[Rfam]
RNA: Nitrogen stress-induced RNA 9
Organism: Nostoc sp. PCC 7524
Nucleotides: 123
Stems, first nucleotide, its partner, number of pairs: 006065001008063003012059004017054002020051003023044007066097008075088001077086002103122008
Number, partner (000 for none) and nucleotide at each position: 001000a002000u003000u004000c005000a006065c007000g008063u009062u010061u011000g012059u013058g014057a015056c016000u017054g018053u019000g020051a021050g022049u023044g024043u025042g026041g027040c028039u029038a030000a031000c032000c033000u034000u035000a036000a037000u038029u039028a040027g041026c042025c043024a044023c045000u046000g047000u048000u049022g050021c051020u052000g053018a054017u055000u056015g057014u058013u059012g060000g061010g062009a063008a064000g065006g066097u067096g068095u069094a070093g071092g072091g073090a074000c075088g076000a077086c078085c079000c080000u081000u082000u083000u084000a085078g086077g087000g088075u089000u090073u091072u092071c093070c094069u095068g096067c097066a098000u099000a100000a101000c102000g103122g104121g105120c106119a107118u108117c109116u110115u111000u112000u113000u114000u115110a116109a117108g118107a119106u120105g121104c122103c123000a